[Rfam]
The record is a 96-nucleotide RNA from Bdellovibrio bacteriovorus, which matches "Purine riboswitch aptamer" in Rfam. Rfam's curators write: Riboswitches are metabolite binding domains within certain messenger RNAs that serve as precision sensors for their corresponding targets.

RNA sequence: GGUCUAAGAGUUCUAAACCAACGUAUAUACCGCGAAUCGGCGCGGCGUUUCUACCAGACACCUUAAUGUCUGACUAUGGGGGAAUCAUGAAACUUU
Dot-bracket structure: .................((..((((....(((((......))))).........((((((......))))))..))))..))..............